[Rfam]
RNA sequence: AAAGCAGGCCUGCAAUUGCAGCACUUCCAUUUAGUGGAGUGCUGUCAUUAACCCUGCUGAGAGCAUCAUUCAGCUGCAGAGUCUCUCACUCCUUUUCACCGUGUAGGUGAUGAGGAUGCUCUGUGGCUGGACAUCU
Dot-bracket structure: ..((((((..........(((((((((........)))))))))........))))))...........(((((((((((.........(((((.(((((.....))))).)))))...)))))))))))......
Numbered sequence: 001a002a003a004g005c006a007g008g009c010c011u012g013c014a015a016u017u018g019c020a021g022c023a024c025u026u027c028c029a030u031u032u033a034g035u036g037g038a039g040u041g042c043u044g045u046c047a048u049u050a051a052c053c054c055u056g057c058u059g060a061g062a063g064c065a066u067c068a069u070u071c072a073g074c075u076g077c078a079g080a081g082u083c084u085c086u087c088a089c090u091c092c093u094u095u096u097c098a099c100c101g102u103g104u105a106g107g108u109g110a111u112g113a114g115g116a117u118g119c120u121c122u123g124u125g126g127c128u129g130g131a132c133a134u135c136u
Stems, first nucleotide, its partner, number of pairs: 003058006019044009070130011090116005096110005

The record is a 136-nucleotide sequence from Myripristis murdjan, which matches "Small nucleolar RNA SNORA69" in Rfam. It scores 57 bits against the family's covariance model. It is annotated as an H/ACA-box small nucleolar RNA. Taxonomically the source falls in Myripristis (Eukaryota, Actinopteri, Ctenosquamata, Euacanthomorphacea). U69 is a member of the H/ACA class of small nucleolar RNAs (snoRNAs) which act as guides in the the modification of uridines to pseudouridines.